[Rfam]
Notes
Shown here is a 128-nucleotide RNA sequence from Gambusia affinis, a member of the family "Small nucleolar RNA SNORA44". ACA44 is a member of the H/ACA class of snoRNA that guide the sites of modification of uridines to pseudouridines. Its family is annotated with RNA processing and nucleolus in the Gene Ontology. The organism belongs to Gambusia, within Eukaryota. The family is grouped with related families in Rfam's "SNORA44 clan".

RNA sequence: CAGCAUGCUAUCCUAAGGAUCUGAGCUCUCUGUGGCUCACGGUUCUCCAAAUGCAUGCGAGAACAUGGGGCGGUCUUUGACUGCUGAGGCCCCUAUGCCUCCAGCAGCCACUCAACCGUCCUACAGGU
Numbered sequence: 001c002a003g004c005a006u007g008c009u010a011u012c013c014u015a016a017g018g019a020u021c022u023g024a025g026c027u028c029u030c031u032g033u034g035g036c037u038c039a040c041g042g043u044u045c046u047c048c049a050a051a052u053g054c055a056u057g058c059g060a061g062a063a064c065a066u067g068g069g070g071c072g073g074u075c076u077u078u079g080a081c082u083g084c085u086g087a088g089g090c091c092c093c094u095a096u097g098c099c100u101c102c103a104g105c106a107g108c109c110a111c112u113c114a115a116c117c118g119u120c121c122u123a124c125a126g127g128u
Base pairs, nucleotide, nucleotide: 013041018038019037020035021034024031068121069120070119071118072117073116083108084107086101087100088099089098